[Rfam]
RNA sequence: UAGCCAGCUAACUAAUCUGAUUAUCAGAAUGUGUAUCUUCAGAGAUUUAGAAAAAUCUGGAAACAGUAAGGCCAUGUUAUGAGCCUUAAAGAUAGCUAUAGUCAUUAACGUCCUUCGAAACAGCUAUAAUA
Dot-bracket structure: ...((((........(((((..................))))).............))))..........((..........((.((((.(((.......))).)))).))...........)).......
RNA: Small nucleolar RNA SNORA33
Organism: Nannospalax galili